This 112-nucleotide sequence from Pararge aegeria belongs to the Rfam family "Wolbachia sRNA 46". Rfam classes the family as a small RNA. The match comes from Rfam's covariance-model search (66 bits). NCBI's taxonomy places the organism under Eukaryota, Endopterygota, Aparaglossata, Lepidoptera, Pararge aegeria. The literature on the family includes a 2014 paper in Proc Natl Acad Sci U S A by Mayoral et al., "Wolbachia small noncoding RNAs and their role in cross-kingdom communications".
RNA sequence: ACAAUUUCCGUAGCAAAUGGUGUCAUGAAAGUAGCUGACACUGGGAUCCACUCUUCUUUUUUUCUGGAUUCCAGUGUCAGCUACUUUCAUGACAGGAAAAUAGGCUACUUGA
Dot-bracket structure: .........(((((......((((((((((((((((((((((((((((((..............)))))))))))))))))))))))))))))).........)))))....